Description: Shown here is a 114-nucleotide RNA sequence from Xiphophorus maculatus, a member of the family "Potassium channel RNA editing signal". The organism belongs to Xiphophorus, within Eukaryota. On this family, see Bhalla et al., Nat Struct Mol Biol 2004: "Control of human potassium channel inactivation by editing of a small mRNA hairpin".
[Rfam]
RNA sequence: GUAGGGUAUGGAGAUAUCUAUCCCAAAACUCUGUUGGGAAAGAUUGUGGGGGGAUUGUGCUGUAUUGCUGGAGUGCUUGUAAUUGCGCUACCUAUUCCCAUUAUUGUGAAUAAC
Numbered sequence: 001g002u003a004g005g006g007u008a009u010g011g012a013g014a015u016a017u018c019u020a021u022c023c024c025a026a027a028a029c030u031c032u033g034u035u036g037g038g039a040a041a042g043a044u045u046g047u048g049g050g051g052g053g054a055u056u057g058u059g060c061u062g063u064a065u066u067g068c069u070g071g072a073g074u075g076c077u078u079g080u081a082a083u084u085g086c087g088c089u090a091c092c093u094a095u096u097c098c099c100a101u102u103a104u105u106g107u108g109a110a111u112a113a114c
Stems, first nucleotide, its partner, number of pairs: 001114002004111001007108005013102003020095002037077002040074001049063001051061001
Dot-bracket structure: ((.(..(((((.(((....((...............((.(........(.(.........).)..........).))................))....))).)))))..).))